[Rfam]
RNA: Pseudomonas sRNA CrcZ
RNA sequence: ACAAAAACAAUAACAAGCACUGAAAUCUAGAAUAAGAACAAGACGAAACGGCUCACGCACAAUAAAAACAAGAUGGCGGAGGCGCAGCUAACUGAUUCUUUUGGAGAGGAUGCGUGUUUGGGGCUUGCCCCACAACCAGGCAGAGAACAACAAAAACUGCACUAAAAGCAGCGCCUGAACUGGUUGGAUCGACAGAUCAACGUGUCAUCAGCGGCCAAAGCAAUCCGUUUGCUCUUUACCCCCGGUUUGGGGGUCGUCCACAAGCUUCGAGAUUUGUGGGCAGGGCACUCAACAAAAACAAGAAGCCCAGCAAAAAAACAAUAAGAGCACGCAACGACUUCUUGGGGAGCUUAGGCUCCCCUUGUCGUUUCUACCCUUCUGGCAGGCAUCCUGCU
Numbered sequence: 001a002c003a004a005a006a007a008c009a010a011u012a013a014c015a016a017g018c019a020c021u022g023a024a025a026u027c028u029a030g031a032a033u034a035a036g037a038a039c040a041a042g043a044c045g046a047a048a049c050g051g052c053u054c055a056c057g058c059a060c061a062a063u064a065a066a067a068a069c070a071a072g073a074u075g076g077c078g079g080a081g082g083c084g085c086a087g088c089u090a091a092c093u094g095a096u097u098c099u100u101u102u103g104g105a106g107a108g109g110a111u112g113c114g115u116g117u118u119u120g121g122g123g124c125u126u127g128c129c130c131c132a133c134a135a136c137c138a139g140g141c142a143g144a145g146a147a148c149a150a151c152a153a154a155a156a157c158u159g160c161a162c163u164a165a166a167a168g169c170a171g172c173g174c175c176u177g178a179a180c181u182g183g184u185u186g187g188a189u190c191g192a193c194a195g196a197u198c199a200a201c202g203u204g205u206c207a208u209c210a211g212c213g214g215c216c217a218a219a220g221c222a223a224u225c226c227g228u229u230u231g232c233u234c235u236u237u238a239c240c241c242c243c244g245g246u247u248u249g250g251g252g253g254u255c256g257u258c259c260a261c262a263a264g265c266u267u268c269g270a271g272a273u274u275u276g277u278g279g280g281c282a283g284g285g286c287a288c289u290c291a292a293c294a295a296a297a298a299c300a301a302g303a304a305g306c307c308c309a310g311c312a313a314a315a316a317a318a319c320a321a322u323a324a325g326a327g328c329a330c331g332c333a334a335c336g337a338c339u340u341c342u343u344g345g346g347g348a349g350c351u352u353a354g355g356c357u358c359c360c361c362u363u364g365u366c367g368u369u370u371c372u373a374c375c376c377u378u379c380u381g382g383c384a385g386g387c388a389u390c391c392u393g394c395u
Stems, first nucleotide, its partner, number of pairs: 049084002052081003099220005113213003133186007157171004238254005278376003282372001283308004328367001344361007